[Rfam]
RNA sequence: GCCCCAGUGGCCUAAUGGAUAAAGCAUUGGCUUCCUACGUUAGAGGUUGUGGGUUUAAGUCCCAUCUGGGGUA
Numbered sequence: 001g002c003c004c005c006a007g008u009g010g011c012c013u014a015a016u017g018g019a020u021a022a023a024g025c026a027u028u029g030g031c032u033u034c035c036u037a038c039g040u041u042a043g044a045g046g047u048u049g050u051g052g053g054u055u056u057a058a059g060u061c062c063c064a065u066c067u068g069g070g071g072u073a
Stems, first nucleotide, its partner, number of pairs: 001072007010025002013022001027043005049065005
Shown here is a 73-nucleotide RNA from Chelydra serpentina, a member of the family "tRNA".
The base pairs follow the family's consensus structure, which is taken from published work.
Taxonomically the source falls in Chelydra (Eukaryota, Deuterostomia, Archelosauria, Testudines).
Rfam classes the family as a transfer RNA.